[Rfam]
RNA sequence: GACAGGGGCUGGGUCUUUGCGGGCGAGGUGAGGUCUGUUCCCCUCUCUCAACUGGCCCUACAAAGUCCCAGUCCCUGGG
Numbered sequence: 001g002a003c004a005g006g007g008g009c010u011g012g013g014u015c016u017u018u019g020c021g022g023g024c025g026a027g028g029u030g031a032g033g034u035c036u037g038u039u040c041c042c043c044u045c046u047c048u049c050a051a052c053u054g055g056c057c058c059u060a061c062a063a064a065g066u067c068c069c070a071g072u073c074c075c076u077g078g079g
Stems, first nucleotide, its partner, number of pairs: 003077006010070004015065005021058004026053002029050002
Rfam assigns this 79-nucleotide RNA sequence from Lepisosteus oculatus to the family "mir-193 microRNA precursor family". The base pairs follow the family's consensus structure, which was predicted with RNAalifold. Rfam 15.1 lists 1,158 matches to the family in 646 species.